Rfam assigns this 67-nucleotide sequence from Momordica charantia to the family "MIR164 microRNA precursor family".
It scores 69 bits against the family's covariance model.
Pairs were carried over by alignment from the consensus structure, which was predicted with RNAalifold.

RNA sequence: UGGAGAAGGGGAGCACGUGCAAAGGGUUAAGAAACGGCCGAGUUUGCACGUGCCCUGCUUCUCCAAC
Numbered sequence: 001u002g003g004a005g006a007a008g009g010g011g012a013g014c015a016c017g018u019g020c021a022a023a024g025g026g027u028u029a030a031g032a033a034a035c036g037g038c039c040g041a042g043u044u045u046g047c048a049c050g051u052g053c054c055c056u057g058c059u060u061c062u063c064c065a066a067c
Base pairs, nucleotide, nucleotide: 001065002064003063004062005061006060007059008058010056011055013053014052015051016050017049018048019047020046021045022044023043027034028033